[Rfam]
RNA: Guanidine-II riboswitch aptamer (mini-ykkC)
Organism: Methylocella tundrae
RNA sequence: CUGCCGGGACGACCCGGCGCGACAUGAGGAUUGGGCCAGGACGACCUGG
Numbered sequence: 001c002u003g004c005c006g007g008g009a010c011g012a013c014c015c016g017g018c019g020c021g022a023c024a025u026g027a028g029g030a031u032u033g034g035g036c037c038a039g040g041a042c043g044a045c046c047u048g049g
Base pairs, nucleotide, nucleotide: 002019003018004017005016006015007014008013036049037048038047039046040045